[Rfam]
RNA sequence: UUUAUUUCAUGUCCAAUACAGUGUUGACAUACAGUCGAGAGGAUGAUCUCUCCGCCUGCGUAUCAGUACUGUAUUGGGCAUGAAGUGAA
Numbered sequence: 001u002u003u004a005u006u007u008c009a010u011g012u013c014c015a016a017u018a019c020a021g022u023g024u025u026g027a028c029a030u031a032c033a034g035u036c037g038a039g040a041g042g043a044u045g046a047u048c049u050c051u052c053c054g055c056c057u058g059c060g061u062a063u064c065a066g067u068a069c070u071g072u073a074u075u076g077g078g079c080a081u082g083a084a085g086u087g088a089a
Stems, first nucleotide, its partner, number of pairs: 002088026029061002032058003036054002039052004